[Rfam]
RNA sequence: UGUGAAAGCAUUGCACCCAGAGUCUGGUUCCCAGACAUUAUACCUGGAGCUUUGAUGUUUUUAUUAAAUCACAAU
Numbered sequence: 001u002g003u004g005a006a007a008g009c010a011u012u013g014c015a016c017c018c019a020g021a022g023u024c025u026g027g028u029u030c031c032c033a034g035a036c037a038u039u040a041u042a043c044c045u046g047g048a049g050c051u052u053u054g055a056u057g058u059u060u061u062u063a064u065u066a067a068a069u070c071a072c073a074a075u
Stems, first nucleotide, its partner, number of pairs: 005053005017047004022036005
The family of this 75-nucleotide RNA from Carassius auratus is "U1A polyadenylation inhibition element (PIE)". It is annotated as a cis-regulatory element. NCBI's taxonomy places the organism under Eukaryota, Actinopterygii, Ostariophysi, Cypriniformes, Carassius. The match comes from Rfam's covariance-model search (75 bits). Its family is annotated with regulation of mRNA polyadenylation in the Gene Ontology. From the family's description: This family represents the U1A polyadenylation inhibition element (PIE). PIE is a regulatory RNA which is responsible for the regulation of the length of the polyA tail of the U1A pre-mRNA. The PIE is located in the U1A mRNA 3' UTR. PIE adopts a U-shaped structure, with binding sites for a single U1A protein at each bend and when complexed with the two proteins it blocks activity of poly(A) polymerase (PAP), and inhibits its activity. The family has 39 seed sequences and 510 matches in Rfam 15.1.